[Rfam]
RNA sequence: GGGGAUAUCUGAUAAUUGGUUAAUCAGCCGCAUUUGCAAUGCGGAUAUGAUAGUUCGAGUCUAUCUAUCUCCA
Numbered sequence: 001g002g003g004g005a006u007a008u009c010u011g012a013u014a015a016u017u018g019g020u021u022a023a024u025c026a027g028c029c030g031c032a033u034u035u036g037c038a039a040u041g042c043g044g045a046u047a048u049g050a051u052a053g054u055u056c057g058a059g060u061c062u063a064u065c066u067a068u069c070u071c072c073a
Stems, first nucleotide, its partner, number of pairs: 001072007010026004028044005049065005